[Rfam]
The family of this 124-nucleotide RNA from Ceyx cyanopectus is "Small nucleolar RNA SNORA44".
Rfam describes the family as follows. ACA44 is a member of the H/ACA class of snoRNA that guide the sites of modification of uridines to pseudouridines.
The family has 27 seed sequences and 1,056 matches in Rfam 15.1.
Taxonomically the source falls in Ceyx (Eukaryota, Opisthokonta, Bilateria, Chordata).
Rfam classes the family as an H/ACA-box small nucleolar RNA.
Its Rfam clan is "SNORA44 clan".
The literature on the family includes a 2001 paper in EMBO J by Huttenhofer et al., "RNomics: an experimental approach that identifies 201 candidates for novel, small, non-messenger RNAs in mouse".
RNA sequence: GUGCAUGUUUAUCCAAGAGCUGGGGCUCCAUCCCAUAGCUCCAGCUCUCCAACCACAUGCAAGAGCAACGGGAAGGUCUUUGACUGCUGGGCCUCUUCUGCCUCUUGCUGUCACUCGCCCCUCC
Numbered sequence: 001g002u003g004c005a006u007g008u009u010u011a012u013c014c015a016a017g018a019g020c021u022g023g024g025g026c027u028c029c030a031u032c033c034c035a036u037a038g039c040u041c042c043a044g045c046u047c048u049c050c051a052a053c054c055a056c057a058u059g060c061a062a063g064a065g066c067a068a069c070g071g072g073a074a075g076g077u078c079u080u081u082g083a084c085u086g087c088u089g090g091g092c093c094u095c096u097u098c099u100g101c102c103u104c105u106u107g108c109u110g111u112c113a114c115u116c117g118c119c120c121c122u123c124c
Base pairs, nucleotide, nucleotide: 013044018040019039020038021037022036024034071124072123073122075120076119086111087110089104090102091101